RNA sequence: UGAAAAUAAUCAUUUGCCGUUCGUAUAUCCUCGACAAUAUGGGUCGAAAGUAUCUACCAGAGCACCGUAAAUGCUUUGACUAUGAAGGCAGAACAUCCAUAU
Dot-bracket structure: .................(.((((((.....(((((.......)))))..........(((((((.......)))))))..)))))).)..............
Numbered sequence: 001u002g003a004a005a006a007u008a009a010u011c012a013u014u015u016g017c018c019g020u021u022c023g024u025a026u027a028u029c030c031u032c033g034a035c036a037a038u039a040u041g042g043g044u045c046g047a048a049a050g051u052a053u054c055u056a057c058c059a060g061a062g063c064a065c066c067g068u069a070a071a072u073g074c075u076u077u078g079a080c081u082a083u084g085a086a087g088g089c090a091g092a093a094c095a096u097c098c099a100u101a102u
Stems, first nucleotide, its partner, number of pairs: 018088001020086006031047005058078007
Shown here is a 102-nucleotide RNA sequence from Virgibacillus pantothenticus, a member of the family "Purine riboswitch aptamer".
It scores 78 bits against the family's covariance model.